[Rfam]
RNA sequence: CGGUGCUCUGGUAGCUGCAUAGGCCAGGGGCGGUAGCGUG
Numbered sequence: 001c002g003g004u005g006c007u008c009u010g011g012u013a014g015c016u017g018c019a020u021a022g023g024c025c026a027g028g029g030g031c032g033g034u035a036g037c038g039u040g
Stems, first nucleotide, its partner, number of pairs: 008027005
The family of this 40-nucleotide sequence from Sodalis ligni is "JUMPstart RNA".
The family's consensus secondary structure is taken from published work.
The match comes from Rfam's covariance-model search (46 bits).
By type it is a cis-regulatory element.
Taxonomically the source falls in Sodalis (Bacteria, Pseudomonadota, Enterobacterales, Bruguierivoracaceae).